[Rfam]
RNA sequence: UUGCAAUGAUGGGAAUAAUUUUUCGUCAACAGUAUAUCACGUUCUGCGUGAAUGGUGAGAGAUUCUGUCUGAGCAA
Dot-bracket structure: .(((...((((............)))).............................................))).
RNA: Small nucleolar RNA SNORD56